[Rfam]
RNA: t44 RNA
Organism: Osedax symbiont Rs2
RNA sequence: GUACUCGGAGAAAAAAAUCACACACACAUCGUCACGUCUACUGGGUGCCUGCGAAAUUGCUCAAAGGUUAGUAUAUGGGAUGUGUGGACGUCAAAC
Numbered sequence: 001g002u003a004c005u006c007g008g009a010g011a012a013a014a015a016a017a018u019c020a021c022a023c024a025c026a027c028a029u030c031g032u033c034a035c036g037u038c039u040a041c042u043g044g045g046u047g048c049c050u051g052c053g054a055a056a057u058u059g060c061u062c063a064a065a066g067g068u069u070a071g072u073a074u075a076u077g078g079g080a081u082g083u084g085u086g087g088a089c090g091u092c093a094a095a096c
Stems, first nucleotide, its partner, number of pairs: 023086008035077003039073005047068004